[Rfam]
Rfam assigns this 192-nucleotide sequence from Brassica oleracea to the family "MIR159 microRNA precursor family". The organism belongs to Brassica oleracea, within Eukaryota.
RNA sequence: UUAAGAGAGAGGGAGCUCCCUUCAGUCCAACCAAAGAGAAUCAAUGUUCCAAUUUGUCUACCGCAUCAUUCAUUCAUUUAACGAGUCUAGCUUAAAAUUUAGUAACUCGGUAUUUGGAUGGAUGAGUCGGAAACUAAUUGGAUCAUAUCACAGCCUCUGAAUGGACUCAAGGAAGCUCUCCCUCGAUAUAUA
Dot-bracket structure: ............(((((.((...((((((......(......................(.(((...((((....(........................................)....))))...))).)......................)......))))))...)).)))))..............
Annotation:
On this family, see Sunkar and Zhu, Plant Cell 2004: "Novel and stress-regulated microRNAs and other small RNAs from Arabidopsis". Its family is annotated with miRNA-mediated post-transcriptional gene silencing and RISC complex in the Gene Ontology.